RNA sequence: AGCACAAACUCGAAGUAGAGUAGAUUAGUACGGUCAACUGAUCCUACUAAUUUGUUCUACUUCGAAUUUGAGCCC
Numbered sequence: 001a002g003c004a005c006a007a008a009c010u011c012g013a014a015g016u017a018g019a020g021u022a023g024a025u026u027a028g029u030a031c032g033g034u035c036a037a038c039u040g041a042u043c044c045u046a047c048u049a050a051u052u053u054g055u056u057c058u059a060c061u062u063c064g065a066a067u068u069u070g071a072g073c074c075c
Base pairs, nucleotide, nucleotide: 002073003072005070006069007068008067011064012063013062014061015060016059017058018057019056020055021054022053023052025050026049027048028047029046030045032043033042034041035040
RNA: mir-5928 microRNA precursor family